The record is a 198-nucleotide RNA from Arabidopsis thaliana, which matches "MIR447 microRNA precursor family" in Rfam. The family's consensus secondary structure was predicted with RNAalifold.
RNA sequence: CAUUCUUAAUAUACAAUACUUCUUUUUCAUGCAUUAAGCCCCUUACAAUGUCGAGUAAACAAAGCAUGUGUCCGCUAAUAUUGUCUUCGAGCUUGGUAUUUUUGUAUUCUGAUACGGUAUUUGGGGACGACAUCUUUUGUUGACUCGAUAUAAGAAGGGGGUUUGUGGAAGAAAUUGUAGUAUUAUAUAUCAAGAAUG
Dot-bracket structure: (((((((.(((((.((((((.(..((((.(.(((.((.((((((...(((((((((.(((((((.((((((((.(.((((.(((..((.((..((.........))..)))).))).)))).).)))).)))).))))))).)))))))))...)))))).)).))).).))))..).)))))).))))).)))))))